[Rfam]
Rfam assigns this 630-nucleotide sequence from Hypsizygus marmoreus to the family "Nuclear RNase P". Lineage of the source: Eukaryota > Basidiomycota > Agaricomycetidae > Tricholomatineae > Hypsizygus. By type it is a ribozyme. Its family is annotated with ribonuclease P complex, ribonuclease P activity and tRNA processing in the Gene Ontology.
RNA sequence: GCAGACUCAAGGCUGCGAUGCUCGUUCCACACAGGACUACCAAUCCUCUUUCGCGAGCGGGCCAAGGUCUGAGCAUUCAAUCCUCCUCGAUCUGUCCUUGCGGGACACGGUUAUAACUAGCCAAGCGACUCAUCAGAAAACCACCCACAAGUCUACCAUGCCCAAAGAUCUCGUGGAGGGAGGGCUUUCGACCUAGAUAUGGGCUUGGAACUUGUCGCGAGGAUCGGGUGGUGCUAUUUCCGGUGCCAGCUGUGCUUCUACUGGCGCGAGGGCGCAGUCAUUGACUGCAACGAAAUGGCGUGGACCCACAUUCUGGAUCCCCCAUCUUUCGAGUCUCUGUCAUCAAAGAAACUUAAGCUCUAAGCGGUUUUUUGUUUUCGUCAGCGACACUUUCGUCUGCUGUCGCGGAGCUUUCGUUUGCCCAACUCUUACUGGUCAACCCCAGAGUCAUACUGGCCUUUGCCAUGAGAUUCUGGGGACCUGACGGCAUCGCGCGCAGGGAAGGUCCUUUGCGGGGCAGCUGUCACUGGAUGUAACUAUCCUUUAGUUCACUUCGCAGCUCGCAUUCUCGGUCGUUGUUCUAGAGCACCGAUCGGUCGCGAAACUCGAUUCAGACUACUCUCCGUCUGC
Numbered sequence: 001g002c003a004g005a006c007u008c009a010a011g012g013c014u015g016c017g018a019u020g021c022u023c024g025u026u027c028c029a030c031a032c033a034g035g036a037c038u039a040c041c042a043a044u045c046c047u048c049u050u051u052c053g054c055g056a057g058c059g060g061g062c063c064a065a066g067g068u069c070u071g072a073g074c075a076u077u078c079a080a081u082c083c084u085c086c087u088c089g090a091u092c093u094g095u096c097c098u099u100g101c102g103g104g105a106c107a108c109g110g111u112u113a114u115a116a117c118u119a120g121c122c123a124a125g126c127g128a129c130u131c132a133u134c135a136g137a138a139a140a141c142c143a144c145c146c147a148c149a150a151g152u153c154u155a156c157c158a159u160g161c162c163c164a165a166a167g168a169u170c171u172c173g174u175g176g177a178g179g180g181a182g183g184g185c186u187u188u189c190g191a192c193c194u195a196g197a198u199a200u201g202g203g204c205u206u207g208g209a210a211c212u213u214g215u216c217g218c219g220a221g222g223a224u225c226g227g228g229u230g231g232u233g234c235u236a237u238u239u240c241c242g243g244u245g246c247c248a249g250c251u252g253u254g255c256u257u258c259u260a261c262u263g264g265c266g267c268g269a270g271g272g273c274g275c276a277g278u279c280a281u282u283g284a285c286u287g288c289a290a291c292g293a294a295a296u297g298g299c300g301u302g303g304a305c306c307c308a309c310a311u312u313c314u315g316g317a318u319c320c321c322c323c324a325u326c327u328u329u330c331g332a333g334u335c336u337c338u339g340u341c342a343u344c345a346a347a348g349a350a351a352c353u354u355a356a357g358c359u360c361u362a363a364g365c366g367g368u369u370u371u372u373u374g375u376u377u378u379c380g381u382c383a384g385c386g387a388c389a390c391u392u393u394c395g396u397c398u399g400c401u402g403u404c405g406c407g408g409a410g411c412u413u414u415c416g417u418u419u420g421c422c423c424a425a426c427u428c429u430u431a432c433u434g435g436u437c438a439a440c441c442c443c444a445g446a447g448u449c450a451u452a453c454u455g456g457c458c459u460u461u462g463c464c465a466u467g468a469g470a471u472u473c474u475g476g477g478g479a480c481c482u483g484a485c486g487g488c489a490u491c492g493c494g495c496g497c498a499g500g501g502a503a504g505g506u507c508c509u510u511u512g513c514g515g516g517g518c519a520g521c522u523g524u525c526a527c528u529g530g531a532u533g534u535a536a537c538u539a540u541c542c543u544u545u546a547g548u549u550c551a552c553u554u555c556g557c558a559g560c561u562c563g564c565a566u567u568c569u570c571g572g573u574c575g576u577u578g579u580u581c582u583a584g585a586g587c588a589c590c591g592a593u594c595g596g597u598c599g600c601g602a603a604a605c606u607c608g609a610u611u612c613a614g615a616c617u618a619c620u621c622u623c624c625g626u627c628u629g630c
Stems, first nucleotide, its partner, number of pairs: 001630004009622001012560007020058005033047004069614005075224004093107005109122005125218005145203002561602004567596001